About this RNA
Shown here is a 35-nucleotide RNA from Chitinophaga solisilvae, a member of the family "DUF805b RNA". The match comes from Rfam's covariance-model search (43 bits). The family's consensus secondary structure is taken from published work.

RNA sequence: CCGGAGCAAGCCGAAAAUCCGUGAAAGAGUAGGCA
Numbered sequence: 001c002c003g004g005a006g007c008a009a010g011c012c013g014a015a016a017a018u019c020c021g022u023g024a025a026a027g028a029g030u031a032g033g034c035a
Stems, first nucleotide, its partner, number of pairs: 002021004010034003